The record is an 86-nucleotide RNA sequence from Burhinus bistriatus, which matches "Selenocysteine transfer RNA" in Rfam. The family's consensus secondary structure is taken from published work. The family has 109 seed sequences and 4,211 matches in Rfam 15.1.
RNA sequence: GCCCAGAAGACCCUUAGUGGUCUGGGGCAUGAGCUUCAAACCUGUAGCUGUCUAGUGACAGAGCGGUUCAUUUCCACCUUUCGGGU
Numbered sequence: 001g002c003c004c005a006g007a008a009g010a011c012c013c014u015u016a017g018u019g020g021u022c023u024g025g026g027g028c029a030u031g032a033g034c035u036u037c038a039a040a041c042c043u044g045u046a047g048c049u050g051u052c053u054a055g056u057g058a059c060a061g062a063g064c065g066g067u068u069c070a071u072u073u074c075c076a077c078c079u080u081u082c083g084g085g086u
Stems, first nucleotide, its partner, number of pairs: 001086004006081004012027006029045003033041001048061005063077001065075002